[Rfam]
RNA sequence: UAACCGAAUUGAACAUCGUACCGUAUAAAGCUGGGGAUAAGGCCCGGCAGUAUCUACCCGGGAACCGUAAAUACCCGGACUACGGAAGCAACGAAGGGUCCG
Numbered sequence: 001u002a003a004c005c006g007a008a009u010u011g012a013a014c015a016u017c018g019u020a021c022c023g024u025a026u027a028a029a030g031c032u033g034g035g036g037a038u039a040a041g042g043c044c045c046g047g048c049a050g051u052a053u054c055u056a057c058c059c060g061g062g063a064a065c066c067g068u069a070a071a072u073a074c075c076c077g078g079a080c081u082a083c084g085g086a087a088g089c090a091a092c093g094a095a096g097g098g099u100c101c102g
Stems, first nucleotide, its partner, number of pairs: 019087001021085005030048006058078005064072001
Background
Purine riboswitch aptamer: a 102-nucleotide RNA from Saccharibacillus sacchari. The organism belongs to Saccharibacillus sacchari, within Bacteria. The match comes from Rfam's covariance-model search (71 bits). The base pairs follow the family's consensus structure, which is taken from published work.